[Rfam]
RNA: Group I catalytic intron
RNA sequence: CAAACUUGGUCAUUUAGAGGAAGUAAAAGUCGUAACAAGGUUUCCGAGGAACAGUGAUCCCUCCGCGAGACGCUUACCGAAGCCUUUGCAGCCCCGUAAGGGGUGUGCCCGCCGCGACUGGAAAUAAUGGUUGGGUCAUGCAGGUCGGCGCCCCCGGGCGCCGGCGACACUUUCGAAUUGCGGGGACGUCCUCCGUCAACCCUACCAAACCAGGCCGGACAACCGGCCAGGUGGCCUCUGCUAGCGGCAGAGGGGAUGGUAACAACGGGCUCGACGAGGGCAAUCCGCAGCCAACUCCCGCCGGCCGGGAAGGGGUUCACAGACUAAGUGGAAGUGGGCGGGGGGCAACCCCCGUUUAAGAUAUAGUCGGGCCCUCUGGGAGACCAGAGG
Dot-bracket structure: (.(...).)..............................................................................................................................................................(((((.((...((((((....(((((..................................................................................)))))...))))))((....(((((.....)))))....))...[.[[[[[..)).))))).(((((((....)))))))........]]]]]].....(((((....)))))..